Source information:
Rfam assigns this 135-nucleotide RNA from Salvator merianae to the family "Small nucleolar RNA SNORA29".
[Rfam]
RNA sequence: UUUCCCAUUUGACUGCUACUUAUUUGGACCACAAAAUAAGUGGCUAUGCUUAUGGGAUAAAGAAACUACUGCCAGUGUCUGAAGGAGAAGGCUGACAUUGUCUUUUUCCUAUAUGAAAUGGCAGAACAUUGUUAA
Number, nucleotide and partner (000 for none) at each position: 001u000002u000003u000004c056005c055006c054007a053008u000009u000010u000011g000012a000013c000014u000015g000016c043017u042018a041019c040020u000021u000022a000023u000024u000025u000026g000027g000028a000029c000030c000031a000032c000033a000034a000035a000036a000037u000038a000039a000040g019041u018042g017043g016044c000045u000046a000047u000048g000049c000050u000051u000052a000053u007054g006055g005056g004057a000058u000059a000060a000061a000062g000063a000064a000065a000066c000067u000068a000069c000070u000071g122072c121073c120074a119075g000076u000077g000078u000079c000080u000081g000082a000083a000084g000085g000086a000087g000088a000089a110090g109091g108092c000093u000094g000095a000096c000097a000098u000099u000100g000101u000102c000103u000104u000105u000106u000107u000108c091109c090110u089111a000112u000113a000114u000115g000116a000117a000118a000119u074120g073121g072122c071123a000124g000125a000126a000127c000128a000129u000130u000131g000132u000133u000134a000135a000
Its family is annotated with nucleolus and RNA processing in the Gene Ontology. A reference for the family is Huttenhofer et al. (2001), "RNomics: an experimental approach that identifies 201 candidates for novel, small, non-messenger RNAs in mouse", EMBO J. By type it is an H/ACA-box small nucleolar RNA. From the family's description: ACA29 is a member of the H/ACA class of snoRNA that guide the sites of modification of uridines to pseudouridines. Taxonomically the source falls in Salvator (Eukaryota, Bilateria, Teleostomi, Teiioidea).